[Rfam]
RNA: Arthropod 7SK RNA
RNA sequence: GGAGGUGUGUGUCAGUGAUGGCACAGCUGAACAUUGAUCGCUUUAAGCUCUUUAGCUGAUCUGCUCAGUAAAGUGCAGUCACGUGGUCGAUCCAGCAACCAAGGGGCUUCUCGUCGAUGCCGUGUGUCGCACGGCGAUGUCAACUGGUUUCUUGAACGUCCGCCAUUUCCAAAUUUGGGGGCUCGGGUGGUUUUAAAUUUCGGACACCUCCAUACACAGGCACUACAGUGCGGUAGUCUGCCAUUCCUUUUU
Numbered sequence: 001g002g003a004g005g006u007g008u009g010u011g012u013c014a015g016u017g018a019u020g021g022c023a024c025a026g027c028u029g030a031a032c033a034u035u036g037a038u039c040g041c042u043u044u045a046a047g048c049u050c051u052u053u054a055g056c057u058g059a060u061c062u063g064c065u066c067a068g069u070a071a072a073g074u075g076c077a078g079u080c081a082c083g084u085g086g087u088c089g090a091u092c093c094a095g096c097a098a099c100c101a102a103g104g105g106g107c108u109u110c111u112c113g114u115c116g117a118u119g120c121c122g123u124g125u126g127u128c129g130c131a132c133g134g135c136g137a138u139g140u141c142a143a144c145u146g147g148u149u150u151c152u153u154g155a156a157c158g159u160c161c162g163c164c165a166u167u168u169c170c171a172a173a174u175u176u177g178g179g180g181g182c183u184c185g186g187g188u189g190g191u192u193u194u195a196a197a198u199u200u201c202g203g204a205c206a207c208c209u210c211c212a213u214a215c216a217c218a219g220g221c222a223c224u225a226c227a228g229u230g231c232g233g234u235a236g237u238c239u240g241c242c243a244u245u246c247c248u249u250u251u252u
Base pairs, nucleotide, nucleotide: 001211002210003209004208005207006206007205008204015082016081017080018079019078027068028067029066032063033062036061037060038059039058040056041055042054219242220241221240222237223236224235225234226233